[Rfam]
RNA sequence: GGACUGAGACGCGACUGGCGCAUUGGGUGGGAUCGACCACCAGGGAGCGAAAGGAGCGGAGGCCGUGCGCCUGGGUCUUCGCA
Numbered sequence: 001g002g003a004c005u006g007a008g009a010c011g012c013g014a015c016u017g018g019c020g021c022a023u024u025g026g027g028u029g030g031g032a033u034c035g036a037c038c039a040c041c042a043g044g045g046a047g048c049g050a051a052a053g054g055a056g057c058g059g060a061g062g063c064c065g066u067g068c069g070c071c072u073g074g075g076u077c078u079u080c081g082c083a
Base pairs, nucleotide, nucleotide: 004053005052010049011048012047015044016043017071018070019069020068021067027040028039029038030037060078061077062076063075064074

Shown here is an 83-nucleotide RNA from Nonomuraea sp. PA05, a member of the family "ZMP/ZTP riboswitch aptamer (pfl RNA motif)". It scores 48 bits against the family's covariance model. For this family Rfam cites "Co-crystal structure of the Fusobacterium ulcerans ZTP riboswitch using an X-ray free-electron laser" (Jones et al., Acta Crystallogr F Struct Biol Commun, 2019). Rfam links the family to the GO terms one-carbon metabolic process and regulation of purine nucleotide biosynthetic process. The base pairs follow the family's consensus structure, which is taken from published work.